[Rfam]
Nucleotides: 122
Base pairs, nucleotide, nucleotide: 002051003050006047007046008045009044010043014040016038019035021032058116060114061113062112063111064110071101072100073099074098075097076096077095079093080092081091083090084089
Number, partner (000 for none) and nucleotide at each position: 001000g002051u003050g004000c005000c006047c007046u008045u009044u010043u011000a012000a013000g014040g015000c016038u017000g018000a019035u020000g021032c022000a023000g024000u025000g026000c027000u028000u029000u030000a031000a032021g033000g034000g035019a036000g037000g038016a039000a040014c041000a042000c043010a044009g045008a046007a047006g048000u049000a050003u051002a052000a053000a054000g055000u056000g057000a058116g059000u060114u061113u062112c063111c064110a065000u066000a067000a068000a069000a070000c071101c072100c073099a074098g075097g076096g077095a078000a079093g080092a081091g082000a083090u084089u085000a086000u087000a088000a089084a090083a091081c092080u093079c094000u095077u096076c097075u098074u099073u100072g101071g102000a103000u104000c105000c106000u107000g108000u109000c110064u111063g112062g113061a114060g115000u116058c117000a118000c119000a120000g121000c122000u